[Rfam]
RNA sequence: AUCUAACCUCGUUAGGUGAGGCUCCUGUACGGAGACAUGCUACUGCCCAGAAACGUCCAAAGACGCCAACGGGUUUGAACAGAAACCAUCGAAUUAAGGUGGUUUAUAACGUAGCUAGCAGUGAAGCAUGCUUCACGUCUUAUGCCGUACAGUGCUAAAACUCAACGAUUUGGGGGGAGAG
Number, nucleotide and partner (000 for none) at each position: 001a000002u000003c000004u000005a000006a000007c175008c174009u173010c172011g166012u165013u097014a000015g162016g161017u160018g000019a000020g156021g155022c154023u000024c000025c152026u151027g150028u149029a148030c147031g146032g145033a000034g000035a000036c000037a000038u000039g115040c114041u113042a112043c111044u000045g074046c073047c072048c071049a000050g000051a000052a000053a000054c065055g064056u063057c062058c000059a000060a000061a000062g057063a056064c055065g054066c000067c000068a000069a000070c000071g048072g047073g046074u045075u000076u000077g000078a000079a000080c000081a000082g000083a105084a104085a103086c000087c000088a100089u099090c098091g000092a000093a000094u000095u000096a000097a013098g090099g089100u088101g000102g000103u085104u084105u083106a000107u000108a000109a000110c000111g043112u042113a041114g040115c039116u000117a140118g139119c000120a000121g000122u000123g000124a000125a000126g000127c000128a000129u000130g000131c000132u000133u000134c000135a000136c000137g000138u000139c118140u117141u000142a000143u000144g000145c032146c031147g030148u029149a028150c027151a026152g025153u000154g022155c021156u020157a000158a000159a000160a017161c016162u015163c000164a000165a012166c011167g000168a000169u000170u000171u000172g010173g009174g008175g007176g000177g000178a000179g000180a000181g000
Shown here is a 181-nucleotide sequence from Wohlfahrtiimonas chitiniclastica, a member of the family "M-box riboswitch aptamer (ykoK leader)". Rfam's curators write: M-box riboswitch, also know as ykoK leader is described as a metaloregulatory RNA that sense divalent metals and function as a genetic control element of genes related to divalent metal transport in bacteria. The match comes from Rfam's covariance-model search (130 bits). Taxonomically the source falls in Wohlfahrtiimonas chitiniclastica (Bacteria, Gammaproteobacteria, Ignatzschineriaceae, Wohlfahrtiimonas).